[Rfam]
RNA sequence: GCCCGGUCGACACUGCAACGGCAGGAACGGAGGACCCAGGCACGACGGGGCCGGCCCAGCGGUAUCCAGGCCGUCCCCUUGGGGUGAAGCCGCGUCAGCGGCCGGGAUUCUUCGCCUGCCCGAACCCGACAGGUCAUCCUUCGCAAGCGGACGACGAAGGGUUU
Numbered sequence: 001g002c003c004c005g006g007u008c009g010a011c012a013c014u015g016c017a018a019c020g021g022c023a024g025g026a027a028c029g030g031a032g033g034a035c036c037c038a039g040g041c042a043c044g045a046c047g048g049g050g051c052c053g054g055c056c057c058a059g060c061g062g063u064a065u066c067c068a069g070g071c072c073g074u075c076c077c078c079u080u081g082g083g084g085u086g087a088a089g090c091c092g093c094g095u096c097a098g099c100g101g102c103c104g105g106g107a108u109u110c111u112u113c114g115c116c117u118g119c120c121c122g123a124a125c126c127c128g129a130c131a132g133g134u135c136a137u138c139c140u141u142c143g144c145a146a147g148c149g150g151a152c153g154a155c156g157a158a159g160g161g162u163u164u
Stems, first nucleotide, its partner, number of pairs: 002025002028143005037081004082127003090101004104121003
RNA: c-di-AMP riboswitch aptamer (ydaO/yuaA leader)